Shown here is a 183-nucleotide sequence from Cytobacillus depressus, a member of the family "Lysine riboswitch aptamer". Its family is annotated with lysine biosynthetic process in the Gene Ontology. A reference for the family is Grundy et al. (2003), "The L box regulon: Lysine sensing by leader RNAs of bacterial lysine biosynthesis genes", Proc Natl Acad Sci U S A. The match comes from Rfam's covariance-model search (117 bits).
[Rfam]
RNA sequence: UAGUGAGGUAGAGGCGCGAUAUUUAACAGUCUUUAGUGGAGUUUGAGAAGCCAUGAUGCUAACGAGAAGGAAAUAUCGCCGAAGCUAAUAAUAUUCUCAAUAUUAUUUAGCUGGGUCUGUAGUUAAUAGCUACAGGACUGUCUCAAUAAACUUCCCGGUUUAUUGAGGGGUGCUAUCUCAUGA
Numbered sequence: 001u002a003g004u005g006a007g008g009u010a011g012a013g014g015c016g017c018g019a020u021a022u023u024u025a026a027c028a029g030u031c032u033u034u035a036g037u038g039g040a041g042u043u044u045g046a047g048a049a050g051c052c053a054u055g056a057u058g059c060u061a062a063c064g065a066g067a068a069g070g071a072a073a074u075a076u077c078g079c080c081g082a083a084g085c086u087a088a089u090a091a092u093a094u095u096c097u098c099a100a101u102a103u104u105a106u107u108u109a110g111c112u113g114g115g116u117c118u119g120u121a122g123u124u125a126a127u128a129g130c131u132a133c134a135g136g137a138c139u140g141u142c143u144c145a146a147u148a149a150a151c152u153u154c155c156c157g158g159u160u161u162a163u164u165g166a167g168g169g170g171u172g173c174u175a176u177c178u179c180a181u182g183a
Stems, first nucleotide, its partner, number of pairs: 006178006016079009031064001033062006083112004087107007113139002116136008141168010